Overview: This 43-nucleotide RNA sequence from Planomicrobium sp. CPCC 101110 belongs to the Rfam family "Ribosomal protein L19 leader". Gene Ontology term of the family: regulation of gene expression. For this family Rfam cites "Diverse mechanisms for regulating ribosomal protein synthesis in Escherichia coli" (Zengel and Lindahl, Prog Nucleic Acid Res Mol Biol, 1994). Rfam classes the family as a cis-regulatory leader. This family is a putative r-protein leader autoregulatory structure found in B. subtilis and other low-GC Gram-positive bacteria. It is located in the 5' untranslated regions of mRNAs encoding ribosomal protein L19 (rplS).

RNA sequence: ACGGUGUUCCGCUGCAACAGGCAAAAAGGUGCAAGAACAUCUG
Numbered sequence: 001a002c003g004g005u006g007u008u009c010c011g012c013u014g015c016a017a018c019a020g021g022c023a024a025a026a027a028g029g030u031g032c033a034a035g036a037a038c039a040u041c042u043g
Stems, first nucleotide, its partner, number of pairs: 003041007013033004018028001